[Rfam]
Shown here is a 54-nucleotide RNA sequence from Acipenser ruthenus, a member of the family "UnaL2 LINE 3' element". The family's consensus secondary structure is taken from published work. The source organism's lineage runs through Eukaryota, Eumetazoa, Deuterostomia, Acipenseridae and Acipenser. The family's RNA type in Rfam is cis-regulatory element.
RNA sequence: ACUCUGCAGCUCUGUAAGUCGCCUUGGAUAAAGGCGUCUGCUAAAUAAACUAAU
Numbered sequence: 001a002c003u004c005u006g007c008a009g010c011u012c013u014g015u016a017a018g019u020c021g022c023c024u025u026g027g028a029u030a031a032a033g034g035c036g037u038c039u040g041c042u043a044a045a046u047a048a049a050c051u052a053a054u
Stems, first nucleotide, its partner, number of pairs: 013043001014041003020036006
The eel long interspersed element (LINE) UnaL2 and its partner short interspersed element (SINE) share a conserved 3' tail containing a stem-loop that is critical for their retrotransposition.